[Rfam]
The record is a 155-nucleotide RNA sequence from Nyctereutes procyonoides, which matches "U4 spliceosomal RNA" in Rfam. The organism belongs to Nyctereutes, within Eukaryota. For this family Rfam cites "The uRNA database" (Zwieb, Nucleic Acids Res, 1997). Pairs were carried over by alignment from the consensus structure, which is taken from published work. Rfam classes the family as a spliceosomal small nuclear RNA. It scores 71 bits against the family's covariance model.

RNA sequence: AGCUUUGCGCAGUGGCAGUAUCAUAGCCAAUGAGGUUUAUCCGAGGCGCGAUUAUUGCUAAUUGAAAACAUAAGGAUCUAUCCUCAUGAUCUUAUCAGUUCCCAAAGGCCCCACCUCCUAAUACCAUCACAUUAGGGAUUAUACUCCAACAUAUA
Numbered sequence: 001a002g003c004u005u006u007g008c009g010c011a012g013u014g015g016c017a018g019u020a021u022c023a024u025a026g027c028c029a030a031u032g033a034g035g036u037u038u039a040u041c042c043g044a045g046g047c048g049c050g051a052u053u054a055u056u057g058c059u060a061a062u063u064g065a066a067a068a069c070a071u072a073a074g075g076a077u078c079u080a081u082c083c084u085c086a087u088g089a090u091c092u093u094a095u096c097a098g099u100u101c102c103c104a105a106a107g108g109c110c111c112c113a114c115c116u117c118c119u120a121a122u123a124c125c126a127u128c129a130c131a132u133u134a135g136g137g138a139u140u141a142u143a144c145u146c147c148a149a150c151a152u153a154u155a
Stems, first nucleotide, its partner, number of pairs: 020052003024048001026047003034042002086127003090123001092121003140155004